Overview: The family of this 71-nucleotide RNA sequence from Antrodiella citrinella is "tRNA". Rfam classes the family as a transfer RNA. The source organism's lineage runs through Eukaryota, Agaricomycotina, Polyporales, Steccherinaceae and Antrodiella. The match comes from Rfam's covariance-model search (49 bits).
RNA sequence: AGUCUCUUAGUUUAAUGGUAAAACAACAUUCUUCUAAAGUGUUUAUUUUGGUUCGAUUCCGGAAGAGAUAU
Number, nucleotide and partner (000 for none) at each position: 001a000002g069003u068004c067005u066006c065007u064008u000009a000010g024011u023012u022013u021014a000015a000016u000017g000018g000019u000020a000021a013022a012023a011024c010025a000026a042027c041028a040029u039030u038031c000032u000033u000034c000035u000036a000037a000038a030039g029040u028041g027042u026043u000044u000045a000046u000047u063048u062049u061050g060051g059052u000053u000054c000055g000056a000057u000058u000059c051060c050061g049062g048063a047064a007065g006066a005067g004068a003069u002070a000071u000